Rfam assigns this 304-nucleotide RNA sequence from Nicotiana tabacum to the family "Plant signal recognition particle RNA". On this family, see Wild et al., Curr Opin Struct Biol 2002: "Towards the structure of the mammalian signal recognition particle".
RNA sequence: GCUGAGCUCAUUAAUGAGAGCAUGUAACCCAUGUGGGGGCAUUAGUGUGGUGGAAUGUUAGGCCUGUCCACAACGCAAGACUUGAGUAGCUAAUUUCUAGACUGCUCUCUCCAAGCAUAGAGUUGGGUCACGUAGUCCAUGCGAAGGCUUGGGUUGAUUGGCUCCUAUAGUGGGGCGGACCACGUGAGACUGGUUUCACGGAGCAACUAAUAGCUCCCGCUUUGUGCAGUGGAAGGAUAACGGGUCGGUGCUACUCAGGCCCAACGAAUGUCUGAUGGACUGCUCUAAUCAAACCACCACAUUU
Numbered sequence: 001g002c003u004g005a006g007c008u009c010a011u012u013a014a015u016g017a018g019a020g021c022a023u024g025u026a027a028c029c030c031a032u033g034u035g036g037g038g039g040c041a042u043u044a045g046u047g048u049g050g051u052g053g054a055a056u057g058u059u060a061g062g063c064c065u066g067u068c069c070a071c072a073a074c075g076c077a078a079g080a081c082u083u084g085a086g087u088a089g090c091u092a093a094u095u096u097c098u099a100g101a102c103u104g105c106u107c108u109c110u111c112c113a114a115g116c117a118u119a120g121a122g123u124u125g126g127g128u129c130a131c132g133u134a135g136u137c138c139a140u141g142c143g144a145a146g147g148c149u150u151g152g153g154u155u156g157a158u159u160g161g162c163u164c165c166u167a168u169a170g171u172g173g174g175g176c177g178g179a180c181c182a183c184g185u186g187a188g189a190c191u192g193g194u195u196u197c198a199c200g201g202a203g204c205a206a207c208u209a210a211u212a213g214c215u216c217c218c219g220c221u222u223u224g225u226g227c228a229g230u231g232g233a234a235g236g237a238u239a240a241c242g243g244g245u246c247g248g249u250g251c252u253a254c255u256c257a258g259g260c261c262c263a264a265c266g267a268a269u270g271u272c273u274g275a276u277g278g279a280c281u282g283c284u285c286u287a288a289u290c291a292a293a294c295c296a297c298c299a300c301a302u303u304u
Stems, first nucleotide, its partner, number of pairs: 001040003004023001006021004011016001028037003044303010056291002058288003061284003068278003073273001075271003079261001081259005087253003091250002097248002100245001102243003106236002110233004115227009125164006133156007141148002165170001172217005184207002190201003